[Rfam]
RNA sequence: GUAGAGGAGACGGCGCAGGGGACACAGGUGAGACUCAGGGGUCCUCGGGGCCCUUGAACAUGUGUCCUCUUCUCCCUCCUCCCAG
Numbered sequence: 001g002u003a004g005a006g007g008a009g010a011c012g013g014c015g016c017a018g019g020g021g022a023c024a025c026a027g028g029u030g031a032g033a034c035u036c037a038g039g040g041g042u043c044c045u046c047g048g049g050g051c052c053c054u055u056g057a058a059c060a061u062g063u064g065u066c067c068u069c070u071u072c073u074c075c076c077u078c079c080u081c082c083c084a085g
Base pairs, nucleotide, nucleotide: 004081005080006079007078008077009076012075013074015072017070018069019068020067021066022065023064024063025062026061028059035057036056037055038054039053040052041051042049043048